SAM (S-adenosyl methionine) riboswitch aptamer: a 118-nucleotide sequence from Arthrobacter woluwensis. About the family: SAM-IV is a mRNA element that regulates gene expression via direct sensing of S-adenosylmethionine (SAM or AdoMet). A search with the family's covariance model found it, with a score of 110 bits. Clan: SAM clan. For this family Rfam cites "The aptamer core of SAM-IV riboswitches mimics the ligand-binding site of SAM-I riboswitches" (Weinberg et al., RNA, 2008). NCBI's taxonomy places the organism under Bacteria, Actinomycetota, Actinomycetes, Micrococcales, Arthrobacter.

RNA sequence: GGUCAUGAGUGCCAGCAUCGAGCCCCGGCUUGCUGGCCGGCAACCCUCCGUCCGCGGCGGGGUGCCCCGGGUGAAGACCAGGCGGGUCGGCAUGCAGGCCGGCACGCAAGCGCGGGCC
Numbered sequence: 001g002g003u004c005a006u007g008a009g010u011g012c013c014a015g016c017a018u019c020g021a022g023c024c025c026c027g028g029c030u031u032g033c034u035g036g037c038c039g040g041c042a043a044c045c046c047u048c049c050g051u052c053c054g055c056g057g058c059g060g061g062g063u064g065c066c067c068c069g070g071g072u073g074a075a076g077a078c079c080a081g082g083c084g085g086g087u088c089g090g091c092a093u094g095c096a097g098g099c100c101g102g103c104a105c106g107c108a109a110g111c112g113c114g115g116g117c118c
Stems, first nucleotide, its partner, number of pairs: 001079004009038001011037006021030002039066003044062003048057002082107003086103006